[Rfam]
RNA: Small nucleolar RNA snoR8a
RNA sequence: AAGAGAGCAGUGAUUAUAAAAUACAAGAAUCAAAAAAUUCUGAUCUGCUCAUUAACUGGGCAUGAUAGACUCAUUAUACACCCAUAGAAUAUGAGCUCUC
Numbered sequence: 001a002a003g004a005g006a007g008c009a010g011u012g013a014u015u016a017u018a019a020a021a022u023a024c025a026a027g028a029a030u031c032a033a034a035a036a037a038u039u040c041u042g043a044u045c046u047g048c049u050c051a052u053u054a055a056c057u058g059g060g061c062a063u064g065a066u067a068g069a070c071u072c073a074u075u076a077u078a079c080a081c082c083c084a085u086a087g088a089a090u091a092u093g094a095g096c097u098c099u100c
Base pairs, nucleotide, nucleotide: 003100004099006097007096